[Rfam]
RNA sequence: AGAAUCCUGGGAAGUUUGUCAACGGUAUUUUGUUUUCAACCAACACUAUGACAUUGGGAAUCUGAACUCCUUUGUGGAUGAAAAGCCUGCAUCGACAGGACUUCAGAAAUAAAGGAUAGGAUACCCACCUGCGAGAGCGGGCUUGAAAACAUAACCGGACGGCUUCACGGGAUGAUG
Number, nucleotide and partner (000 for none) at each position: 001a000002g000003a000004a173005u172006c171007c170008u169009g168010g000011g166012a165013a164014g163015u162016u000017u161018g160019u159020c000021a000022a000023c000024g000025g000026u000027a000028u000029u000030u000031u000032g150033u149034u148035u147036u000037c145038a144039a143040c141041c140042a000043a000044c000045a000046c000047u000048a000049u000050g000051a000052c000053a000054u000055u000056g126057g125058g124059a000060a122061u121062c120063u119064g000065a117066a000067c000068u000069c115070c114071u113072u112073u111074g110075u109076g000077g000078a000079u000080g000081a103082a102083a000084a000085g000086c099087c098088u097089g096090c000091a000092u000093c000094g000095a000096c089097a088098g087099g086100a000101c000102u082103u081104c000105a000106g000107a000108a000109a075110u074111a073112a072113a071114g070115g069116a000117u065118a000119g063120g062121a061122u060123a000124c058125c057126c056127a000128c000129c000130u000131g000132c000133g000134a000135g000136a000137g000138c000139g000140g041141g040142c000143u039144u038145g037146a000147a035148a034149a033150c032151a000152u000153a000154a000155c000156c000157g000158g000159a019160c018161g017162g015163c014164u013165u012166c011167a000168c009169g008170g007171g006172a005173u004174g000175a000176u000177g000
This 177-nucleotide RNA sequence from Aceticella autotrophica belongs to the Rfam family "6S / SsrS RNA". About the family: E. coli 6S RNA was the first non coding RNA to be sequenced, but its function was unknown until recently. It consists of 184 nucleotides that fold into an extended hairpin structure with a large single-stranded internal bulge. The 6S RNA specifically associates with RNA polymerase holoenzyme containing the sigma70 specificity factor. The family's RNA type in Rfam is non-coding RNA gene. It scores 94 bits against the family's covariance model. The source organism's lineage runs through Bacteria, Clostridia, Thermoanaerobacterales, Thermoanaerobacteraceae and Aceticella.